This 99-nucleotide RNA sequence from Streptococcus pasteurianus belongs to the Rfam family "23S methyl RNA motif". It scores 93 bits against the family's covariance model. Gene Ontology term of the family: regulation of gene expression.
Nucleotides: 099
Base pairs, nucleotide, nucleotide: 002046003045004044005043006042007041008040009039010038011037012036013035014034015033016032017031018030019029054094055093056092057091058090059089060088061087062086063085064084065083066082067081070080071079072078
Number, partner (000 for none) and nucleotide at each position: 001000a002046a003045u004044u005043c006042g007041u008040u009039a010038g011037u012036u013035u014034a015033a016032a017031u018030c019029a020000a021000a022000c023000c024000u025000g026000u027000u028000a029019u030018g031017a032016u033015u034014u035013a036012a037011g038010u039009u040008a041007a042006u043005g044004a045003a046002u047000c048000g049000c050000c051000g052000c053000c054094a055093a056092c057091c058090a059089c060088a061087u062086u063085g064084u065083u066082u067081g068000c069000u070080g071079a072078g073000c074000u075000u076000g077000a078072c079071u080070c081067c082066g083065a084064g085063c086062a087061g088060u089059g090058u091057g092056g093055u094054u095000u096000a097000u098000u099000u